This 102-nucleotide RNA sequence from Alkalibacillus haloalkaliphilus belongs to the Rfam family "Purine riboswitch aptamer".
RNA sequence: CCUUUUACGAUAAUAUGGCUUCAUAUAUACUCGCCAAUACGGGGUGAGAGUCUCUACCGGGUUGCCUUAAACAACCUGACUAUGAAGGCAGAUCACGAUACA
Numbered sequence: 001c002c003u004u005u006u007a008c009g010a011u012a013a014u015a016u017g018g019c020u021u022c023a024u025a026u027a028u029a030c031u032c033g034c035c036a037a038u039a040c041g042g043g044g045u046g047a048g049a050g051u052c053u054c055u056a057c058c059g060g061g062u063u064g065c066c067u068u069a070a071a072c073a074a075c076c077u078g079a080c081u082a083u084g085a086a087g088g089c090a091g092a093u094c095a096c097g098a099u100a101c102a
Base pairs, nucleotide, nucleotide: 019087020086021085022084023083024082025081030048031047032046033045034044035043058078059077060076061075062074063073064072
Dot-bracket structure: ..................(((((((....((((((.......)))))).........(((((((.......)))))))..)))))))...............
About this RNA:
Taxonomically the source falls in Alkalibacillus (Bacteria, Bacillati, Bacillota, Caryophanales). Pairs were carried over by alignment from the consensus structure, which is taken from published work.